[Rfam]
RNA sequence: UGGCACCCAACAUGGGCCUUGGAUAUUGGGGACAAAGUGAGGGACACAAUGGAAGAAAAAGGGGUGCGAACCCGCUAAAAUAAUUUGGAGAUGCCGUGGGAACCUGCCGUGAUGUAUGCUGAAGGUAAGUUGGUCAUGCAAUUUAAAUCAUGGGGCAAGCAUUAAGUCAGCAUCAGAUUUAUGAGAUACAGUUAAGAGAAGCUCUCAAGGCAAGAGGAGUAAAGGUAACUACUGAUGAUUUAUUUCAUUUCUUUGAUUUUGUGAAGGACCUUUGUCCUU
Numbered sequence: 001u002g003g004c005a006c007c008c009a010a011c012a013u014g015g016g017c018c019u020u021g022g023a024u025a026u027u028g029g030g031g032a033c034a035a036a037g038u039g040a041g042g043g044a045c046a047c048a049a050u051g052g053a054a055g056a057a058a059a060a061g062g063g064g065u066g067c068g069a070a071c072c073c074g075c076u077a078a079a080a081u082a083a084u085u086u087g088g089a090g091a092u093g094c095c096g097u098g099g100g101a102a103c104c105u106g107c108c109g110u111g112a113u114g115u116a117u118g119c120u121g122a123a124g125g126u127a128a129g130u131u132g133g134u135c136a137u138g139c140a141a142u143u144u145a146a147a148u149c150a151u152g153g154g155g156c157a158a159g160c161a162u163u164a165a166g167u168c169a170g171c172a173u174c175a176g177a178u179u180u181a182u183g184a185g186a187u188a189c190a191g192u193u194a195a196g197a198g199a200a201g202c203u204c205u206c207a208a209g210g211c212a213a214g215a216g217g218a219g220u221a222a223a224g225g226u227a228a229c230u231a232c233u234g235a236u237g238a239u240u241u242a243u244u245u246c247a248u249u250u251c252u253u254u255g256a257u258u259u260u261g262u263g264a265a266g267g268a269c270c271u272u273u274g275u276c277c278u279u
Stems, first nucleotide, its partner, number of pairs: 006031003012026003036050001037047002082126001084124001085122002090117001091115002095111005137157003142154004164205001166202002214254006223241004228236001264279006
Rfam assigns this 279-nucleotide sequence from Nannospalax galili to the family "Mason-Pfizer monkey virus packaging signal". Gene Ontology term of the family: viral genome packaging. The family's RNA type in Rfam is cis-regulatory element. Taxonomically the source falls in Nannospalax (Eukaryota, Euteleostomi, Sarcopterygii, Myomorpha).